[Rfam]
RNA sequence: AGGCAAUGAAGAAAGAAAACAUUUCUCGAUGCUGAUAUAACAAUAAUUAUGUUAUAUACUUCUUGAUGACCUAUUUGUGCGUGUCUGAGCCUC
Numbered sequence: 001a002g003g004c005a006a007u008g009a010a011g012a013a014a015g016a017a018a019a020c021a022u023u024u025c026u027c028g029a030u031g032c033u034g035a036u037a038u039a040a041c042a043a044u045a046a047u048u049a050u051g052u053u054a055u056a057u058a059c060u061u062c063u064u065g066a067u068g069a070c071c072u073a074u075u076u077g078u079g080c081g082u083g084u085c086u087g088a089g090c091c092u093c
Stems, first nucleotide, its partner, number of pairs: 001092004

Record summary: The record is a 93-nucleotide RNA from Anisodus acutangulus, which matches "small nucleolar RNA snoR126" in Rfam. Rfam links the family to the GO terms RNA processing and nucleolus. The source organism's lineage runs through Eukaryota, Tracheophyta, eudicotyledons, Pentapetalae and Anisodus.